[Rfam]
About this RNA:
This 70-nucleotide RNA from Elioraea sp. Yellowstone belongs to the Rfam family "terC RNA". The match comes from Rfam's covariance-model search (43 bits). The family's RNA type in Rfam is cis-regulatory element.
RNA sequence: CUCGCCGUCCGGGCCCCUCUGGCGACGCUUCCCGCCUCGCGGCGAAGCGGCGCGAUGUCGGACCUUCCUG
Numbered sequence: 001c002u003c004g005c006c007g008u009c010c011g012g013g014c015c016c017c018u019c020u021g022g023c024g025a026c027g028c029u030u031c032c033c034g035c036c037u038c039g040c041g042g043c044g045a046a047g048c049g050g051c052g053c054g055a056u057g058u059c060g061g062a063c064c065u066u067c068c069u070g
Stems, first nucleotide, its partner, number of pairs: 007063006022053003026049006